[Rfam]
Rfam assigns this 105-nucleotide sequence to the family "DUF3577 RNA". It is one of the family's seed sequences. The base pairs follow the family's consensus structure, which is taken from published work.

RNA sequence: CGUAUCGGAUAUGCGUGAGCAAUCACGCGAAACUCGCCCGCAAUCCCGGCAUCACCGCAUCGCGGUGUGGCGACUUUUUCAAAUGCUGCGCAAGGCAGCACUUCU
Numbered sequence: 001c002g003u004a005u006c007g008g009a010u011a012u013g014c015g016u017g018a019g020c021a022a023u024c025a026c027g028c029g030a031a032a033c034u035c036g037c038c039c040g041c042a043a044u045c046c047c048g049g050c051a052u053c054a055c056c057g058c059a060u061c062g063c064g065g066u067g068u069g070g071c072g073a074c075u076u077u078u079u080c081a082a083a084u085g086c087u088g089c090g091c092a093a094g095g096c097a098g099c100a101c102u103u104c105u
Base pairs, nucleotide, nucleotide: 013028014027015026016025017024018023034073035072036071037070038069053067054066055065056064057063058062084100085099086098087097088096089095